[Rfam]
RNA: Xanthomonas sRNA sX2
RNA sequence: ACCAGCUGUGCAGCCCUAGAGCAUCUAGGCAGCUUAAAGGGUGCAGGCAUCCGCAGCUGGACCACAUUCGCUCACCGACAGACACCGCGCGGUGUCUGUUGGUGAUGU
Numbered sequence: 001a002c003c004a005g006c007u008g009u010g011c012a013g014c015c016c017u018a019g020a021g022c023a024u025c026u027a028g029g030c031a032g033c034u035u036a037a038a039g040g041g042u043g044c045a046g047g048c049a050u051c052c053g054c055a056g057c058u059g060g061a062c063c064a065c066a067u068u069c070g071c072u073c074a075c076c077g078a079c080a081g082a083c084a085c086c087g088c089g090c091g092g093u094g095u096c097u098g099u100u101g102g103u104g105a106u107g108u
Base pairs, nucleotide, nucleotide: 002060003059004058005057006056007055008054009053010033011032013030014029016028017027018026019025039052040051041050042049043048077106082103083102086098087097089095